This 70-nucleotide RNA sequence from Sarcophilus harrisii belongs to the Rfam family "Small nucleolar RNA SNORD82". The source organism's lineage runs through Eukaryota, Gnathostomata, Teleostomi, Metatheria and Sarcophilus. Pairs were carried over by alignment from the consensus structure, which was predicted with PFOLD. It scores 66 bits against the family's covariance model.
[Rfam]
RNA sequence: GGCACAAAUGAUGAUCUGCCAAGGGACUUAAUGCUGACGCCUGAUGGAUCCUCACUGCAGGCUGAUGUGC
Dot-bracket structure: .(((((...........................................................)))))
Numbered sequence: 001g002g003c004a005c006a007a008a009u010g011a012u013g014a015u016c017u018g019c020c021a022a023g024g025g026a027c028u029u030a031a032u033g034c035u036g037a038c039g040c041c042u043g044a045u046g047g048a049u050c051c052u053c054a055c056u057g058c059a060g061g062c063u064g065a066u067g068u069g070c
Stems, first nucleotide, its partner, number of pairs: 002070005

snoRNA U82 or Z25 is found in both humans and mice.